[Rfam]
RNA sequence: UAGUCUGAAAUGAUGGCUCUUUAAAUUUCAUAUCUUUGACAUUUUUCUCUGAAGAAAGUUUUUUUCUUACUCAUUGGAUCAGAAUG
Numbered sequence: 001u002a003g004u005c006u007g008a009a010a011u012g013a014u015g016g017c018u019c020u021u022u023a024a025a026u027u028u029c030a031u032a033u034c035u036u037u038g039a040c041a042u043u044u045u046u047c048u049c050u051g052a053a054g055a056a057a058g059u060u061u062u063u064u065u066c067u068u069a070c071u072c073a074u075u076g077g078a079u080c081a082g083a084a085u086g
Stems, first nucleotide, its partner, number of pairs: 001086002004083002
A member of the RNA family "Small nucleolar RNA SNORD111" from Enhydra lutris, 86 nucleotides long. By type it is a C/D-box small nucleolar RNA.